[Rfam]
A member of the RNA family "PyrR binding site" from Lederbergia galactosidilytica, 128 nucleotides long.
It scores 57 bits against the family's covariance model.
Rfam 15.1 lists 1,498 matches to the family in 930 species.
Pairs were carried over by alignment from the consensus structure, which is taken from published work.
NCBI's taxonomy places the organism under Bacteria, Bacillota, Caryophanales, Bacillaceae, Lederbergia.

RNA sequence: UGAACCUUUAAUGUAGUCCUGUGAGGCUAUGAAGGAUACAGACCGAUACUUAUGUGUAUCAUACAUAAGUACUUAAAUUUGGGAUUCGUAUACCCUCAUACCUCGAUAUGGUAUGAGGUUUUUUUCAU
Numbered sequence: 001u002g003a004a005c006c007u008u009u010a011a012u013g014u015a016g017u018c019c020u021g022u023g024a025g026g027c028u029a030u031g032a033a034g035g036a037u038a039c040a041g042a043c044c045g046a047u048a049c050u051u052a053u054g055u056g057u058a059u060c061a062u063a064c065a066u067a068a069g070u071a072c073u074u075a076a077a078u079u080u081g082g083g084a085u086u087c088g089u090a091u092a093c094c095c096u097c098a099u100a101c102c103u104c105g106a107u108a109u110g111g112u113a114u115g116a117g118g119u120u121u122u123u124u125u126c127a128u
Stems, first nucleotide, its partner, number of pairs: 003037001005035005013030006045073001047071011090122001092120001094118009
Dot-bracket structure: ..(.(((((...((((((......))))))))))).).......(.(((((((((((...))))))))))).)................(.(.(((((((((.......))))))))).).)......